[Rfam]
Small nucleolar RNA SNORD16: a 99-nucleotide RNA sequence from Acanthochromis polyacanthus.

RNA sequence: UGCUGUGAUGGUGUAAUUUGCGUCUGACUCUGUGACCAGUGACAGAAUGCCUGCUGUCAUAUGCUGGCACGGAUGGCUGAUGACCAUUGAAUCUGAGCG
Numbered sequence: 001u002g003c004u005g006u007g008a009u010g011g012u013g014u015a016a017u018u019u020g021c022g023u024c025u026g027a028c029u030c031u032g033u034g035a036c037c038a039g040u041g042a043c044a045g046a047a048u049g050c051c052u053g054c055u056g057u058c059a060u061a062u063g064c065u066g067g068c069a070c071g072g073a074u075g076g077c078u079g080a081u082g083a084c085c086a087u088u089g090a091a092u093c094u095g096a097g098c099g
Stems, first nucleotide, its partner, number of pairs: 001099003021082004030072005039064002041058005
The match comes from Rfam's covariance-model search (79 bits). Gene Ontology terms of the family: RNA processing and nucleolus. Its Rfam clan is "SNORD16 clan". The base pairs follow the family's consensus structure, which was predicted with PFOLD.